Shown here is a 56-nucleotide RNA from Kitasatospora sp. Root187, a member of the family "L17-Actino-Proteobacteria ribosomal protein leader". A search with the family's covariance model found it, with a score of 50 bits. The base pairs follow the family's consensus structure, which is taken from published work.
RNA sequence: CGUAGCGGCAACAGUGCCGCUACGCCCGUCCCGGUACCUGAUACGGCCGGGUUCGG
Numbered sequence: 001c002g003u004a005g006c007g008g009c010a011a012c013a014g015u016g017c018c019g020c021u022a023c024g025c026c027c028g029u030c031c032c033g034g035u036a037c038c039u040g041a042u043a044c045g046g047c048c049g050g051g052u053u054c055g056g
Stems, first nucleotide, its partner, number of pairs: 001024009026056003030051006